[Rfam]
RNA sequence: UCUAUGGGGUUCGCGUGACCACCCCGUGAGGCCAAGGCUCAAGGUUCGCAUCCAUCACCAAACUUGUUUGAAGGAUGCCAAGCCAUG
Numbered sequence: 001u002c003u004a005u006g007g008g009g010u011u012c013g014c015g016u017g018a019c020c021a022c023c024c025c026g027u028g029a030g031g032c033c034a035a036g037g038c039u040c041a042a043g044g045u046u047c048g049c050a051u052c053c054a055u056c057a058c059c060a061a062a063c064u065u066g067u068u069u070g071a072a073g074g075a076u077g078c079c080a081a082g083c084c085a086u087g
Stems, first nucleotide, its partner, number of pairs: 005026006048078006
Rfam assigns this 87-nucleotide RNA from Aliiroseovarius pelagivivens to the family "chrB-a RNA".
A search with the family's covariance model found it, with a score of 54 bits.
The source organism's lineage runs through Bacteria, Alphaproteobacteria, Rhodobacterales, Paracoccaceae and Aliiroseovarius.
It is annotated as a cis-regulatory element.